Nucleotides: 083
Base pairs, nucleotide, nucleotide: 001083002082003081004080005079028052029051030050032046033045034044
Number, partner (000 for none) and nucleotide at each position: 001083g002082g003081a004080u005079u006000g007000a008000u009000g010000a011000u012000g013000a014000c015000u016000u017000c018000a019000a020000a021000a022000a023000u024000a025000g026000a027000u028052c029051u030050c031000g032046u033045u034044g035000g036000a037000a038000u039000c040000u041000g042000a043000a044034c045033a046032a047000a048000a049000u050030g051029a052028g053000u054000g055000a056000c057000a058000a059000a060000a061000a062000u063000c064000a065000c066000u067000u068000a069000u070000g071000u072000g073000a074000a075000c076000u077000g078000a079005g080004a081003u082002c083001c

The record is an 83-nucleotide RNA sequence from Balaenoptera physalus, which matches "Small nucleolar RNA SNORD116" in Rfam. Its family is annotated with nucleolus and RNA processing in the Gene Ontology. The family has 48 seed sequences and 3,260 matches in Rfam 15.1. Lineage of the source: Eukaryota > Eumetazoa > Deuterostomia > Teleostomi > Balaenoptera.